[Rfam]
RNA sequence: CACACACGGGAUUGGGCUUUUGUCGGGAGAAAUCCGGCAAAAACCUCCGGUGGCGAGAAAUCGCCUCAGCCCGUGGAGGUUAAACCGGAAAAGGAAAAUAA
Numbered sequence: 001c002a003c004a005c006a007c008g009g010g011a012u013u014g015g016g017c018u019u020u021u022g023u024c025g026g027g028a029g030a031a032a033u034c035c036g037g038c039a040a041a042a043a044c045c046u047c048c049g050g051u052g053g054c055g056a057g058a059a060a061u062c063g064c065c066u067c068a069g070c071c072c073g074u075g076g077a078g079g080u081u082a083a084a085c086c087g088g089a090a091a092a093g094g095a096a097a098a099u100a101a
Stems, first nucleotide, its partner, number of pairs: 001078001003076001005075006014045002024036002027034001052065004

A member of the RNA family "rpsB sRNA" from Brucella intermedia, 101 nucleotides long. A reference for the family is Meyer et al. (2009), "Identification of candidate structured RNAs in the marine organism 'Candidatus Pelagibacter ubique'", BMC Genomics. Rfam 15.1 lists 245 matches to the family in 245 species.